Shown here is a 144-nucleotide RNA from Papaver somniferum, a member of the family "small nucleolar RNA snoR135".
It is annotated as an H/ACA-box small nucleolar RNA.
A reference for the family is Chen and Wu (2009), "Mining small RNA sequencing data: a new approach to identify small nucleolar RNAs in Arabidopsis", Nucleic Acids Res.
Gene Ontology terms of the family: nucleolus and RNA processing.
Pairs were carried over by alignment from the consensus structure, which was predicted with RNAalifold.
[Rfam]
RNA sequence: AAUGCAGAGAUAUGUGUGUAUCCGAAUUGUGCUUCAAAUGCCUUUCAUCGGAAAGAAUUCUCUGCAAAAUUGAUUUUUGGUGAAGGUGGGCAGUUGAGUUUCAUGCAAUCUAUUGACUUAUCAACAAUCAUUUUCUCCACAUCA
Numbered sequence: 001a002a003u004g005c006a007g008a009g010a011u012a013u014g015u016g017u018g019u020a021u022c023c024g025a026a027u028u029g030u031g032c033u034u035c036a037a038a039u040g041c042c043u044u045u046c047a048u049c050g051g052a053a054a055g056a057a058u059u060c061u062c063u064g065c066a067a068a069a070u071u072g073a074u075u076u077u078u079g080g081u082g083a084a085g086g087u088g089g090g091c092a093g094u095u096g097a098g099u100u101u102c103a104u105g106c107a108a109u110c111u112a113u114u115g116a117c118u119u120a121u122c123a124a125c126a127a128u129c130a131u132u133u134u135c136u137c138c139a140c141a142u143c144a
Base pairs, nucleotide, nucleotide: 004065005064006063007062008061009060010059016043018041019040020039021038079138080137082135083134084133085132086131087130088129089128093125094124095123096122